[Rfam]
RNA sequence: CUGCAUCCGGGGCUUGUUUAAGUUGCCUGCGAUUAUGAAAUGCCUCAGGCAGCUAAAGCAAGUCUGGGAUGCAA
Numbered sequence: 001c002u003g004c005a006u007c008c009g010g011g012g013c014u015u016g017u018u019u020a021a022g023u024u025g026c027c028u029g030c031g032a033u034u035a036u037g038a039a040a041u042g043c044c045u046c047a048g049g050c051a052g053c054u055a056a057a058g059c060a061a062g063u064c065u066g067g068g069a070u071g072c073a074a
Stems, first nucleotide, its partner, number of pairs: 003072002006069003010065010021054009031044001